This 129-nucleotide RNA sequence from Caenorhabditis elegans belongs to the Rfam family "Nematode snoRNA ceN36-1". The family's consensus secondary structure was predicted with RNAalifold. It is one of the family's seed sequences. A reference for the family is Jia et al. (2007), "Systematic identification of non-coding RNA 2,2,7-trimethylguanosine cap structures in Caenorhabditis elegans", BMC Mol Biol. Rfam links the family to the GO terms RNA processing and nucleolus.
RNA sequence: AUCGCUCUCCAGCUCCAUGCAGACGUGAAAAAGUCGGUGUGGCGUUUUCAUGAGCGGAAAUUAACAUUGUUCCAAAAAACAAUUGCUAGUCUCCUGUGAGCUAAUGAUCACCUGAUGGUUCAAACACUU
Number, nucleotide and partner (000 for none) at each position: 001a000002u057003c056004g055005c054006u053007c052008u000009c000010c000011a046012g045013c044014u000015c042016c041017a040018u039019g038020c037021a000022g000023a034024c033025g000026u000027g000028a000029a000030a000031a000032a000033g024034u023035c000036g000037g020038u019039g018040u017041g016042g015043c000044g013045u012046u011047u000048u000049c000050a000051u000052g007053a006054g005055c004056g003057g002058a000059a000060a000061u000062u000063a000064a000065c000066a000067u000068u000069g000070u000071u000072c000073c000074a000075a000076a000077a000078a000079a000080c000081a000082a108083u107084u106085g105086c000087u103088a102089g101090u000091c100092u099093c098094c000095u000096g000097u000098g093099a092100g091101c089102u088103a087104a000105u085106g084107a083108u082109c000110a000111c000112c000113u000114g000115a000116u000117g000118g000119u000120u000121c000122a000123a000124a000125c000126a000127c000128u000129u000